Small nucleolar RNA SNORA31: a 127-nucleotide RNA from Phascolarctos cinereus. The base pairs follow the family's consensus structure, which was predicted with RNAalifold. The source organism's lineage runs through Eukaryota, Eumetazoa, Tetrapoda, Diprotodontia and Phascolarctos. On this family, see Huttenhofer et al., EMBO J 2001: "RNomics: an experimental approach that identifies 201 candidates for novel, small, non-messenger RNAs in mouse". Rfam describes the family as follows. ACA31 (SNORA31) belongs to the H/ACA class of snoRNAs which are thought to guide the sites of modification of uridines to pseudouridines. ACA31 is predicted to guide the pseudouridylation of U3713 in 28S rRNA and U218 in 18S rRNA. This family includes the mouse homologue snoMBI-161. Gene Ontology terms of the family: RNA processing and nucleolus.
RNA sequence: CUGCAUCCACUGAUAGACCUUGAACAAGUUACUGUUGUUCACCGGUUUGCACUAGGGUGCCAAAGAGAAGUCCUCGCUCUUUCUGUCUGUCUUUGUGGCAGCCAGGAUUGAAUAGAGGAAUACAUUU
Numbered sequence: 001c002u003g004c005a006u007c008c009a010c011u012g013a014u015a016g017a018c019c020u021u022g023a024a025c026a027a028g029u030u031a032c033u034g035u036u037g038u039u040c041a042c043c044g045g046u047u048u049g050c051a052c053u054a055g056g057g058u059g060c061c062a063a064a065g066a067g068a069a070g071u072c073c074u075c076g077c078u079c080u081u082u083c084u085g086u087c088u089g090u091c092u093u094u095g096u097g098g099c100a101g102c103c104a105g106g107a108u109u110g111a112a113u114a115g116a117g118g119a120a121u122a123c124a125u126u127u
Base pairs, nucleotide, nucleotide: 003060004059005058006057007056008055011051012050014049015048016047017046018045019044022040023039024038025037026036027035071119072118073117074116075115079110082107083106084105087101088100089099090098091097